[Rfam]
RNA sequence: UGCUGGCUGGUGCAGUGCCUGAGGGAGUAAGAGCCCUGUUGUUGUAAGAUAGUGUCUUACUCCCUCAGGCACAUCUCCAACGAGU
Numbered sequence: 001u002g003c004u005g006g007c008u009g010g011u012g013c014a015g016u017g018c019c020u021g022a023g024g025g026a027g028u029a030a031g032a033g034c035c036c037u038g039u040u041g042u043u044g045u046a047a048g049a050u051a052g053u054g055u056c057u058u059a060c061u062c063c064c065u066c067a068g069g070c071a072c073a074u075c076u077c078c079a080a081c082g083a084g085u
Base pairs, nucleotide, nucleotide: 002085003084004083006081008079009078010077012075015072016071017070018069019068020067021066022065023064024063025062026061027060028059029058030057031056032055036052037051038050039049040048
Dot-bracket structure: .(((.(.(((.(..((((((((((((((((((...(((((.......)))))..))))))))))))))))))..).))).).)))